RNA: Lysine riboswitch aptamer
Organism: Anoxynatronum buryatiense
RNA sequence: GUCAAGAAUAGAGGCUGCACCGCGAAUGAGUCGCACCCGGAUGAAAAGGGAGGGGUUUCCCAAUGCCGGAGUGUUAAAGGUCAAGGUGCCGAAGAGAGCGAAAAAACCCUUUUCGUAAUCUGGGGGAUCGGGUGAAGAAUCCGUCCACUGUCAUGGGAUACCCCAUGGAGUGCUAUUCGCCAA
Numbered sequence: 001g002u003c004a005a006g007a008a009u010a011g012a013g014g015c016u017g018c019a020c021c022g023c024g025a026a027u028g029a030g031u032c033g034c035a036c037c038c039g040g041a042u043g044a045a046a047a048g049g050g051a052g053g054g055g056u057u058u059c060c061c062a063a064u065g066c067c068g069g070a071g072u073g074u075u076a077a078a079g080g081u082c083a084a085g086g087u088g089c090c091g092a093a094g095a096g097a098g099c100g101a102a103a104a105a106a107c108c109c110u111u112u113u114c115g116u117a118a119u120c121u122g123g124g125g126g127a128u129c130g131g132g133u134g135a136a137g138a139a140u141c142c143g144u145c146c147a148c149u150g151u152c153a154u155g156g157g158a159u160a161c162c163c164c165a166u167g168g169a170g171u172g173c174u175a176u177u178c179g180c181c182a183a
Base pairs, nucleotide, nucleotide: 006178007177008176009175010174011173017089018088019087020086021085024082025081033074034073035072036071037069038068039067093121094120095119098116099115100114101113102112103111104110122149123148125146126145127144128143130142131141132140133139151168152167153166154165155164156163157162